[Rfam]
Nucleotides: 141
Stems, first nucleotide, its partner, number of pairs: 020052005026047003034042002085117003088113003092109005130141004
Number, partner (000 for none) and nucleotide at each position: 001000a002000g003000c004000u005000u006000u007000g008000c009000g010000c011000a012000g013000a014000g015000g016000c017000a018000g019000u020052g021051u022050c023049g024048c025000a026047u027046c028045c029000a030000a031000u032000g033000a034042g035041g036000u037000u038000u039000a040000u041035c042034c043000g044000a045028g046027g047026a048024g049023c050022g051021a052020c053000u054000a055000u056000u057000g058000c059000u060000a061000g062000u063000u064000g065000a066000a067000a068000a069000c070000u071000u072000u073000u074000c075000c076000c077000a078000a079000u080000a081000c082000c083000c084000c085117g086116c087115c088113u089112g090111g091000a092109c093108g094107a095106c096105g097000u098000g099000a100000a101000a102000u103000a104000c105096c106095g107094u108093c109092g110000g111090c112089c113088g114000u115087g116086g117085c118000a119000a120000u121000u122000u123000u124000u125000g126000g127000c128000a129000g130141g131140c132139c133138c134000u135000a136000c137000g138133g139132g140131g141130c
Overview:
A member of the RNA family "U4 spliceosomal RNA" from Haemaphysalis longicornis, 141 nucleotides long.